[Rfam]
RNA: c-di-GMP-I riboswitch aptamer
Organism: Methylotenera mobilis
RNA sequence: AUUUGAAAAAGGCAAACUCAGCUGAAAAGCGAGGGCGCAAAAUCACCGGUCUAAGGGGCGUAAGUUCUAAGAUAGCGGGAGUACCAGA
Numbered sequence: 001a002u003u004u005g006a007a008a009a010a011g012g013c014a015a016a017c018u019c020a021g022c023u024g025a026a027a028a029g030c031g032a033g034g035g036c037g038c039a040a041a042a043u044c045a046c047c048g049g050u051c052u053a054a055g056g057g058g059c060g061u062a063a064g065u066u067c068u069a070a071g072a073u074a075g076c077g078g079g080a081g082u083a084c085c086a087g088a
Stems, first nucleotide, its partner, number of pairs: 012038002017033003021030003041082001043080002046078003049073003056067004